Notes
A member of the RNA family "Potassium channel RNA editing signal" from Oncorhynchus tshawytscha, 115 nucleotides long. Pairs were carried over by alignment from the consensus structure, which is taken from published work. On this family, see Bhalla et al., Nat Struct Mol Biol 2004: "Control of human potassium channel inactivation by editing of a small mRNA hairpin". About the family: This family represents a group of sequences related to the human potassium channel Kv1.1 hairpin element which directs the efficient modification of an adenosine to inosine by an adenosine deaminase acting on RNA (ADAR).

[Rfam]
RNA sequence: CUUGCAGAUAUGGAGACAUGGUUCCUAAGACGAUUGCGGGGAAGAUAUUUGGUUCUAUCUGUUCACUGAGCGGGGUGUUGGCAUUGCCCUGCCUGUCCCAGUCAUUGUGUCCAAC
Numbered sequence: 001c002u003u004g005c006a007g008a009u010a011u012g013g014a015g016a017c018a019u020g021g022u023u024c025c026u027a028a029g030a031c032g033a034u035u036g037c038g039g040g041g042a043a044g045a046u047a048u049u050u051g052g053u054u055c056u057a058u059c060u061g062u063u064c065a066c067u068g069a070g071c072g073g074g075g076u077g078u079u080g081g082c083a084u085u086g087c088c089c090u091g092c093c094u095g096u097c098c099c100a101g102u103c104a105u106u107g108u109g110u111c112c113a114a115c
Stems, first nucleotide, its partner, number of pairs: 002114001004112001007111001009109005015103003020098002023095001039079002042076001052064001